Annotation
The family of this 70-nucleotide sequence from Ziziphus jujuba is "Small nucleolar RNA Z105". Rfam links the family to the GO terms nucleolus and RNA processing. Pairs were carried over by alignment from the consensus structure, which was predicted with CMfinder. On this family, see Chen et al., Nucleic Acids Res 2003: "The high diversity of snoRNAs in plants: identification and comparative study of 120 snoRNA genes from Oryza sativa". By type it is a C/D-box small nucleolar RNA.
RNA sequence: CAGGCAUAAUGAUGAAGCUUGUUGUCUGAGAUUUCUUGUGAUGAUCAAAUCAACCUCCUACUCAUACUGA
Numbered sequence: 001c002a003g004g005c006a007u008a009a010u011g012a013u014g015a016a017g018c019u020u021g022u023u024g025u026c027u028g029a030g031a032u033u034u035c036u037u038g039u040g041a042u043g044a045u046c047a048a049a050u051c052a053a054c055c056u057c058c059u060a061c062u063c064a065u066a067c068u069g070a
Stems, first nucleotide, its partner, number of pairs: 006065002009062001028046002